[Rfam]
RNA sequence: GAAUGAUAUGAUGAACUUCAUACAAGUGAUUGCUGAUAUGAUAGCGUGUUUACCAUGUAUUAGCUCUAGCUGAUCAUUC
Numbered sequence: 001g002a003a004u005g006a007u008a009u010g011a012u013g014a015a016c017u018u019c020a021u022a023c024a025a026g027u028g029a030u031u032g033c034u035g036a037u038a039u040g041a042u043a044g045c046g047u048g049u050u051u052a053c054c055a056u057g058u059a060u061u062a063g064c065u066c067u068a069g070c071u072g073a074u075c076a077u078u079c
Stems, first nucleotide, its partner, number of pairs: 002078004028051001031046004

A member of the RNA family "Small nucleolar RNA Z102/R77" from Anisodus acutangulus, 79 nucleotides long. The match comes from Rfam's covariance-model search (46 bits). The base pairs follow the family's consensus structure, which was predicted with PFOLD. Gene Ontology terms of the family: RNA processing and nucleolus. The family has 9 seed sequences and 1,346 matches in Rfam 15.1.